About this RNA
The record is a 69-nucleotide sequence from Leptobrachium leishanense, which matches "mir-551 microRNA precursor family" in Rfam. NCBI's taxonomy places the organism under Eukaryota, Bilateria, Amphibia, Pelobatoidea, Leptobrachium. The match comes from Rfam's covariance-model search (70 bits). For this family Rfam cites "Conservation of small RNA pathways in platypus" (Murchison et al., Genome Res, 2008). Rfam 15.1 lists 1,097 matches to the family in 627 species.
[Rfam]
Nucleotides: 069
Base pairs, nucleotide, nucleotide: 002068003067004066005065006064007063009061010060011059012058013057014056016054017053021049022048023047024046029043030042031041
Number, partner (000 for none) and nucleotide at each position: 001000u002068g003067g004066c005065u006064c007063u008000u009061g010060a011059a012058a013057u014056c015000a016054a017053g018000c019000c020000u021049g022048g023047g024046u025000u026000a027000g028000a029043c030042c031041u032000u033000a034000u035000a036000a037000g038000u039000a040000g041031a042030g043029g044000c045000g046024a047023c048022c049021c050000a051000u052000a053017c054016u055000u056014g057013g058012u059011u060010u061009c062000u063007g064006g065005g066004g067003c068002u069000g